[Rfam]
RNA sequence: UGGACAUCUACUUUAAUCAGUUUCUUCUUAAAGUGAAGAAAACUCUUUGUAAAUGUCCUAGAGAAAUAGUAGUAGCUUUCUGUUCACCCUUUGCUAGUAAACAGGGUGGAUUUUUCCACUUCUGACAUAU
Numbered sequence: 001u002g003g004a005c006a007u008c009u010a011c012u013u014u015a016a017u018c019a020g021u022u023u024c025u026u027c028u029u030a031a032a033g034u035g036a037a038g039a040a041a042a043c044u045c046u047u048u049g050u051a052a053a054u055g056u057c058c059u060a061g062a063g064a065a066a067u068a069g070u071a072g073u074a075g076c077u078u079u080c081u082g083u084u085c086a087c088c089c090u091u092u093g094c095u096a097g098u099a100a101a102c103a104g105g106g107u108g109g110a111u112u113u114u115u116c117c118a119c120u121u122c123u124g125a126c127a128u129a130u
Stems, first nucleotide, its partner, number of pairs: 002058006009051003019044004023039005070124003074120002089104002092101001
This 130-nucleotide RNA sequence from Molossus molossus belongs to the Rfam family "Small Cajal body specific RNA 24". The family is grouped with related families in Rfam's "SCARNA3 clan". It is annotated as a small Cajal body RNA. On this family, see Darzacq et al., EMBO J 2002: "Cajal body-specific small nuclear RNAs: a novel class of 2'-O-methylation and pseudouridylation guide RNAs". Pairs were carried over by alignment from the consensus structure, which was predicted with RNAfold.